[Rfam]
RNA: COG3943 RNA
RNA sequence: CGCGCUCCCUACAAUUAUCAAUAAUUGAGCAUGUGGCCAUCACAAGGAUGAUGUAACACCAGCAGUUACGGGACUUAGUCGAUAACUGCCAACAAGGUGU
Numbered sequence: 001c002g003c004g005c006u007c008c009c010u011a012c013a014a015u016u017a018u019c020a021a022u023a024a025u026u027g028a029g030c031a032u033g034u035g036g037c038c039a040u041c042a043c044a045a046g047g048a049u050g051a052u053g054u055a056a057c058a059c060c061a062g063c064a065g066u067u068a069c070g071g072g073a074c075u076u077a078g079u080c081g082a083u084a085a086c087u088g089c090c091a092a093c094a095a096g097g098u099g100u
Stems, first nucleotide, its partner, number of pairs: 012027005038053005056100005062089007072080003